[Rfam]
RNA sequence: AAGGUCCGUUCGCUACACAUCCGGCAGGAGCGGGGGAACCAGAUAGCGGGCUUCGUUUUUCCGAAGUCCUAGGGGUUAAGACGCGCAUAAGUUCGCAGUACGCGUCCGGGUGGCUCCCAUCCGAAUCCGACAGCUAACUCCGCAGGCACUGGGAGAGGCCCU
Dot-bracket structure: ....((....................)).((((((....(...............................)(((.....((((.................))))..((((.......))))...))).........))))))...................
Numbered sequence: 001a002a003g004g005u006c007c008g009u010u011c012g013c014u015a016c017a018c019a020u021c022c023g024g025c026a027g028g029a030g031c032g033g034g035g036g037a038a039c040c041a042g043a044u045a046g047c048g049g050g051c052u053u054c055g056u057u058u059u060u061c062c063g064a065a066g067u068c069c070u071a072g073g074g075g076u077u078a079a080g081a082c083g084c085g086c087a088u089a090a091g092u093u094c095g096c097a098g099u100a101c102g103c104g105u106c107c108g109g110g111u112g113g114c115u116c117c118c119a120u121c122c123g124a125a126u127c128c129g130a131c132a133g134c135u136a137a138c139u140c141c142g143c144a145g146g147c148a149c150u151g152g153g154a155g156a157g158g159c160c161c162u
Stems, first nucleotide, its partner, number of pairs: 005028002030143006040072001073128003081105004108122004